[Rfam]
RNA sequence: UGGAAGUGAUGAAAUAGAGAUAAAUGGAUGUCUCUUUGAGUGGAGUGCAUGCAAUAAGUGGAAUUUAAGUCAAACUGGGGGUGGGGUUGUGGGGAGUGAGUGUGUGCAUGUGUAUAUGUAGAAGAGGCUUUACAUGGGGGUGCUGAUCAUGCUGUGCUGAUUCCGGAGUGCAUAUGAGGCAUGUUGUUCAACUCUAGGGUGUUCCUUUACAACACUGCCGAUGAUUAAAGCCCAAAAGAAAACCCACCAUGAACAAGCUUGGGGGCAUCCUAAAUCUCUAACAGGUUCAUUAAUGACAGUGAUCCUGUGAGCUGAUCCAA
Numbered sequence: 001u002g003g004a005a006g007u008g009a010u011g012a013a014a015u016a017g018a019g020a021u022a023a024a025u026g027g028a029u030g031u032c033u034c035u036u037u038g039a040g041u042g043g044a045g046u047g048c049a050u051g052c053a054a055u056a057a058g059u060g061g062a063a064u065u066u067a068a069g070u071c072a073a074a075c076u077g078g079g080g081g082u083g084g085g086g087u088u089g090u091g092g093g094g095a096g097u098g099a100g101u102g103u104g105u106g107c108a109u110g111u112g113u114a115u116a117u118g119u120a121g122a123a124g125a126g127g128c129u130u131u132a133c134a135u136g137g138g139g140g141u142g143c144u145g146a147u148c149a150u151g152c153u154g155u156g157c158u159g160a161u162u163c164c165g166g167a168g169u170g171c172a173u174a175u176g177a178g179g180c181a182u183g184u185u186g187u188u189c190a191a192c193u194c195u196a197g198g199g200u201g202u203u204c205c206u207u208u209a210c211a212a213c214a215c216u217g218c219c220g221a222u223g224a225u226u227a228a229a230g231c232c233c234a235a236a237a238g239a240a241a242a243c244c245c246a247c248c249a250u251g252a253a254c255a256a257g258c259u260u261g262g263g264g265g266c267a268u269c270c271u272a273a274a275u276c277u278c279u280a281a282c283a284g285g286u287u288c289a290u291u292a293a294u295g296a297c298a299g300u301g302a303u304c305c306u307g308u309g310a311g312c313u314g315a316u317c318c319a320a
Base pairs, nucleotide, nucleotide: 001319002318003317004316182214183213184212185211186210187209190203191202192201194199
Notes: This 320-nucleotide RNA from Rhinopomastus cyanomelas belongs to the Rfam family "Small Cajal body-specific RNA 7". Lineage of the source: Eukaryota > Teleostomi > Sauropsida > Saurischia > Rhinopomastus. Its family is annotated with RNA processing and nucleolus in the Gene Ontology.